[Rfam]
RNA sequence: ACUGGGAGCGUGGCGCACUCCUGUAAUCCAGCUGCUUGGAGGUCGGAGUCAGCGGAUGGUUUGAGGUCAGGAGUCCUGGCGUAGGGCAUCUCACGUCGACUGGGCGUCCGCGCUAAGCCCGGCGUCAAUAUGGUCGAACCGGAGGAGUCCGGUGGCGGCCAGGUUGGCCAAGGAGGGGCGCACCGGGCCAGGCGGGAAACCGAGCAGCCAAAAGUCCCCGCGUCGGGCAGUAGCGGGAUCGCGCCCGGGAGUGGGAGCCCUGUGACAGCCUGACCAAUACAGCUAGACCUGGUUCUUU
Numbered sequence: 001a002c003u004g005g006g007a008g009c010g011u012g013g014c015g016c017a018c019u020c021c022u023g024u025a026a027u028c029c030a031g032c033u034g035c036u037u038g039g040a041g042g043u044c045g046g047a048g049u050c051a052g053c054g055g056a057u058g059g060u061u062u063g064a065g066g067u068c069a070g071g072a073g074u075c076c077u078g079g080c081g082u083a084g085g086g087c088a089u090c091u092c093a094c095g096u097c098g099a100c101u102g103g104g105c106g107u108c109c110g111c112g113c114u115a116a117g118c119c120c121g122g123c124g125u126c127a128a129u130a131u132g133g134u135c136g137a138a139c140c141g142g143a144g145g146a147g148u149c150c151g152g153u154g155g156c157g158g159c160c161a162g163g164u165u166g167g168c169c170a171a172g173g174a175g176g177g178g179c180g181c182a183c184c185g186g187g188c189c190a191g192g193c194g195g196g197a198a199a200c201c202g203a204g205c206a207g208c209c210a211a212a213a214g215u216c217c218c219c220g221c222g223u224c225g226g227g228c229a230g231u232a233g234c235g236g237g238a239u240c241g242c243g244c245c246c247g248g249g250a251g252u253g254g255g256a257g258c259c260c261u262g263u264g265a266c267a268g269c270c271u272g273a274c275c276a277a278u279a280c281a282g283c284u285a286g287a288c289c290u291g292g293u294u295c296u297u298u
Base pairs, nucleotide, nucleotide: 001043002042003041004022005021006020007019008018010016027040028039029038045296046295047294048293049292050291051290052289057285058284059283060282061281065275066274067273068272069271070270071269076268077267078266080264081263082262083261084260085259086258087257090255091254092253093252094251096249100248101247102246103245104244105243106242107241108237109236111235112234113233114232115231117228118227119226120225121224122223123222124221125220126166127165128164129163131161132160133159134158135157136156138153139152140151141150142149143148168172175218176217177216178215179214186209187208188207193202194201195200

The family of this 298-nucleotide RNA sequence from Oryctes borbonicus is "Metazoan signal recognition particle RNA". The literature on the family includes a 2002 paper in Curr Opin Struct Biol by Wild et al., "Towards the structure of the mammalian signal recognition particle". Rfam describes the family as follows. The signal recognition particle (SRP) is a universally conserved ribonucleoprotein. Its Rfam clan is "SRP clan". It scores 250 bits against the family's covariance model.